[Rfam]
RNA sequence: GAGCCUGACAUGCUUGCGAGCCGACGGGUGUCGAAGCCCGGUGGGCCCAAGGAAGCUGAUGCGCGGGAUCCUCUAGGCAGGUGCACCGCCGACCGACCUUGAUCUUCGUGUGAAGGGUUCGAGUGAGAGCAUGCGUGUUGGGACCCGAAAGAUGGUGAACUAUGCCUGAGCGGGGCGAAGCCAGAGGAAACUCUGGUGGAGGCCCGCAGCGAUACUGACGUGCAAAUCGUUCGUCUGACUCGGGUAUAGGGGCGAAAGACUAAUCGAACCAUCUAGUAGCUGGUU
Numbered sequence: 001g002a003g004c005c006u007g008a009c010a011u012g013c014u015u016g017c018g019a020g021c022c023g024a025c026g027g028g029u030g031u032c033g034a035a036g037c038c039c040g041g042u043g044g045g046c047c048c049a050a051g052g053a054a055g056c057u058g059a060u061g062c063g064c065g066g067g068a069u070c071c072u073c074u075a076g077g078c079a080g081g082u083g084c085a086c087c088g089c090c091g092a093c094c095g096a097c098c099u100u101g102a103u104c105u106u107c108g109u110g111u112g113a114a115g116g117g118u119u120c121g122a123g124u125g126a127g128a129g130c131a132u133g134c135g136u137g138u139u140g141g142g143a144c145c146c147g148a149a150a151g152a153u154g155g156u157g158a159a160c161u162a163u164g165c166c167u168g169a170g171c172g173g174g175g176c177g178a179a180g181c182c183a184g185a186g187g188a189a190a191c192u193c194u195g196g197u198g199g200a201g202g203c204c205c206g207c208a209g210c211g212a213u214a215c216u217g218a219c220g221u222g223c224a225a226a227u228c229g230u231u232c233g234u235c236u237g238a239c240u241c242g243g244g245u246a247u248a249g250g251g252g253c254g255a256a257a258g259a260c261u262a263a264u265c266g267a268a269c270c271a272u273c274u275a276g277u278a279g280c281u282g283g284u285u
Stems, first nucleotide, its partner, number of pairs: 005141009015131003020046003025040005050057002063089004070081002092124002094121003097117003104110001144283002147280001151273006160249011171237001173205004180197007209234004214230002217228002251261002